[Rfam]
RNA sequence: UUUUAGCCACAAAAUGCAAUGCAUUUUGAACGUUGGCUUUGCCAACGGCUCCGUAGGAGCGAACAAAAUUAGAAAUAAUUUUGUGAGUAAUAAUCGACCGC
Number, nucleotide and partner (000 for none) at each position: 001u000002u000003u000004u000005a000006g000007c000008c000009a000010c028011a027012a026013a025014a024015u023016g022017c021018a000019a000020u000021g017022c016023a015024u014025u013026u012027u011028g010029a000030a000031c047032g046033u045034u044035g043036g042037c041038u000039u000040u000041g037042c036043c035044a034045a033046c032047g031048g060049c059050u058051c057052c056053g000054u000055a000056g052057g051058a050059g049060c048061g000062a000063a084064c083065a082066a081067a080068a079069u078070u077071a076072g000073a000074a000075a000076u071077a070078a069079u068080u067081u066082u065083g064084u063085g000086a000087g098088u097089a000090a000091u000092a000093a000094u000095c000096g000097a088098c087099c000100g000101c000